[Rfam]
RNA sequence: UUUAAGUGUAACCAUGAGUUUUCGUAUCCAAUUUUAAUCGUCCGUCUUAUUUCAAAAUUUUUUGAAAAAAUUAAAAACCAUAAGUCGUACUAUUGAUGUUUUAUCGUCUAAUAACAACAAAAAUACUAACAAUAGAAAAUUUUAAAUAAGACGGACGAUCAAAGUUGGACACAGAAACUCAUAGCUGCGCUUAAA
Dot-bracket structure: ..........................(((((((((.((((((((((((((...............................................................................................)))))))))))))).)))))))))..........................
Numbered sequence: 001u002u003u004a005a006g007u008g009u010a011a012c013c014a015u016g017a018g019u020u021u022u023c024g025u026a027u028c029c030a031a032u033u034u035u036a037a038u039c040g041u042c043c044g045u046c047u048u049a050u051u052u053c054a055a056a057a058u059u060u061u062u063u064g065a066a067a068a069a070a071u072u073a074a075a076a077a078c079c080a081u082a083a084g085u086c087g088u089a090c091u092a093u094u095g096a097u098g099u100u101u102u103a104u105c106g107u108c109u110a111a112u113a114a115c116a117a118c119a120a121a122a123a124u125a126c127u128a129a130c131a132a133u134a135g136a137a138a139a140u141u142u143u144a145a146a147u148a149a150g151a152c153g154g155a156c157g158a159u160c161a162a163a164g165u166u167g168g169a170c171a172c173a174g175a176a177a178c179u180c181a182u183a184g185c186u187g188c189g190c191u192u193a194a195a
Stems, first nucleotide, its partner, number of pairs: 027169009037159014
Overview:
The family of this 195-nucleotide RNA sequence from Oryza punctata is "MIR812 microRNA precursor family". It scores 145 bits against the family's covariance model. Lineage of the source: Eukaryota > Petrosaviidae > commelinids > Oryzinae > Oryza.